[Rfam]
RNA sequence: UACCUUUGCAAACGUAAAUAUGGAAAUACCAUAUUAUAUACAUAAAAAUCAUUAAAUAAUAUUAGCAUG
Numbered sequence: 001u002a003c004c005u006u007u008g009c010a011a012a013c014g015u016a017a018a019u020a021u022g023g024a025a026a027u028a029c030c031a032u033a034u035u036a037u038a039u040a041c042a043u044a045a046a047a048a049u050c051a052u053u054a055a056a057u058a059a060u061a062u063u064a065g066c067a068u069g
Stems, first nucleotide, its partner, number of pairs: 017035005
Dot-bracket structure: ................(((((.........)))))..................................
This 69-nucleotide sequence from Myroides marinus belongs to the Rfam family "S15-Flavobacteria ribosomal protein leader". The family's RNA type in Rfam is cis-regulatory leader. Rfam's curators put it in the seed alignment. For this family Rfam cites "Discovery of 20 novel ribosomal leader candidates in bacteria and archaea" (Eckert and Weinberg, BMC Microbiol, 2020).